[Rfam]
RNA: MIR2619 microRNA precursor family
RNA sequence: AAACAACAUCUUAUGUAUUGGAUAUUUGGCAGUUUUGGCCCCCAAGCCCACUUUUGACUUAGUCUUCGCUGACGUGGCACCCACAAUGGUCGACACGUGGCACCUCACUUAAGGGAUGUGGGUGCCACGUCAGCGAAGACUAAGUCAAAAGUGACAUUGGGGGCCAAAAUUGUCCAAUAUCUAAUACAUAGGGGGCUGUUU
Numbered sequence: 001a002a003a004c005a006a007c008a009u010c011u012u013a014u015g016u017a018u019u020g021g022a023u024a025u026u027u028g029g030c031a032g033u034u035u036u037g038g039c040c041c042c043c044a045a046g047c048c049c050a051c052u053u054u055u056g057a058c059u060u061a062g063u064c065u066u067c068g069c070u071g072a073c074g075u076g077g078c079a080c081c082c083a084c085a086a087u088g089g090u091c092g093a094c095a096c097g098u099g100g101c102a103c104c105u106c107a108c109u110u111a112a113g114g115g116a117u118g119u120g121g122g123u124g125c126c127a128c129g130u131c132a133g134c135g136a137a138g139a140c141u142a143a144g145u146c147a148a149a150a151g152u153g154a155c156a157u158u159g160g161g162g163g164c165c166a167a168a169a170u171u172g173u174c175c176a177a178u179a180u181c182u183a184a185u186a187c188a189u190a191g192g193g194g195g196c197u198g199u200u201u
Stems, first nucleotide, its partner, number of pairs: 001201002004198002007195001012190015028174018072130002075127008